[Rfam]
This 85-nucleotide RNA sequence from an Erysipelotrichia bacterium belongs to the Rfam family "c-di-GMP-I riboswitch aptamer".
Taxonomically the source falls in Erysipelotrichia (Bacteria, Bacillati, Bacillota).
A search with the family's covariance model found it, with a score of 64 bits.
RNA sequence: UACGAAUCUGGGCAAACUAAUCGAAAGGUUAGGGCGCAAAGUCAGACGUCUAACGUGGAAACACUAUGAUGGGUCAACUGCAUAA
Numbered sequence: 001u002a003c004g005a006a007u008c009u010g011g012g013c014a015a016a017c018u019a020a021u022c023g024a025a026a027g028g029u030u031a032g033g034g035c036g037c038a039a040a041g042u043c044a045g046a047c048g049u050c051u052a053a054c055g056u057g058g059a060a061a062c063a064c065u066a067u068g069a070u071g072g073g074u075c076a077a078c079u080g081c082a083u084a085a
Base pairs, nucleotide, nucleotide: 012037013036017032018031019030020029021028022027040079041078042077045075046074047073048070049069050068055064056063057062